[Rfam]
Nucleotides: 493
Base pairs, nucleotide, nucleotide: 001432002431003430005428006427011024013022014021027168028167029166030165031164032163033162041121042120043119044118045117046116047115053109054107055106060103061102062101065098067096068095069094072093073092074091075090076089077088079085123149124148125147128144129143130142131141174198175197176196177195179193180192181191182190183189203214205212219394221392222391224389228385229384230383237382242378243377244376262356263355264354267352268351269350270349271348272347273346274345275344284339285338286337287336289313290312295307296306314318319334323332324331396422397421398420399419401417402416403415404414435485436484437483438482439481440480441479442478444477445476452472453471458467459466460465
Number, partner (000 for none) and nucleotide at each position: 001432u002431c003430c004000a005428c006427u007000a008000a009000a010000g011024u012000u013022u014021c015000c016000c017000u018000u019000a020000a021014g022013a023000u024011a025000g026000u027168a028167a029166u030165a031164u032163u033162a034000a035000u036000c037000c038000u039000a040000g041121u042120u043119u044118u045117a046116u047115a048000a049000a050000g051000u052000a053109a054107a055106g056000c057000g058000a059000a060103u061102a062101a063000u064000u065098a066000a067096g068095g069094a070000c071000u072093u073092a074091a075090a076089g077088g078000u079085a080000c081000u082000a083000u084000u085079u086000a087000g088077c089076c090075u091074u092073u093072a094069u095068c096067u097000a098065u099000u100000c101062u102061u103060a104000a105000a106055c107054u108000u109053u110000a111000a112000a113000u114000a115047u116046a117045u118044a119043a120042a121041a122000a123149g124148u125147c126000c127000c128144u129143a130142u131141u132000a133000c134000u135000u136000u137000a138000u139000u140000a141131a142130a143129u144128a145000u146000a147125g148124a149123u150000a151000u152000u153000a154000g155000a156000a157000u158000a159000a160000a161000a162033u163032a164031a165030u166029a167028u168027u169000a170000a171000u172000a173000g174198g175197c176196u177195a178000u179193u180192u181191u182190u183189a184000a185000u186000a187000a188000a189183u190182a191181g192180a193179a194000u195177u196176a197175g198174c199000g200000a201000u202000a203214u204000a205212g206000g207000a208000u209000a210000a211000a212205c213000c214203g215000a216000a217000u218000a219394u220000a221392a222391g223000g224389u225000u226000a227000a228385a229384g230383u231000a232000c233000u234000a235000g236000a237382g238000u239000a240000g241000a242378u243377a244376c245000u246000u247000a248000u249000u250000a251000a252000a253000u254000a255000u256000g257000a258000u259000a260000a261000a262356a263355g264354g265000u266000a267352u268351u269350a270349a271348u272347a273346u274345a275344u276000c277000c278000u279000a280000a281000u282000a283000a284339u285338a286337g287336g288000a289313u290312a291000a292000u293000a294000g295307c296306u297000a298000u299000a300000a301000a302000a303000g304000u305000c306296g307295g308000a309000a310000u311000c312290u313289a314318u315000u316000a317000a318314a319334g320000a321000c322000u323332a324331u325000a326000u327000a328000a329000u330000a331324a332323u333000u334319u335000a336287c337286u338285u339284a340000c341000c342000g343000a344275a345274u346273a347272u348271a349270u350269u351268a352267g353000c354264c355263c356262u357000a358000a359000a360000a361000a362000u363000a364000g365000a366000u367000a368000g369000c370000g371000c372000u373000u374000a375000a376244g377243u378242a379000u380000c381000c382237u383230a384229u385228u386000u387000a388000u389224a390000c391222c392221u393000c394219g395000c396422c397421c398420u399419u400000a401417a402416u403415a404414u405000a406000g407000g408000c409000u410000u411000a412000g413000u414404a415403u416402a417401u418000c419399g420398a421397g422396g423000a424000g425000u426000a427006g428005g429000c430003g431002g432001a433000c434000g435485u436484a437483g438482a439481g440480g441479u442478u443000a444477a445476u446000a447000a448000c449000g450000a451000a452472g453471c454000c455000u456000a457000g458467g459466a460465c461000g462000u463000a464000a465460g466459u467458c468000c469000g470000g471453g472452u473000a474000g475000a476445a477444u478442a479441g480440c481439c482438u483437c484436u485435a486000g487000u488000a489000u490000a491000g492000a493000u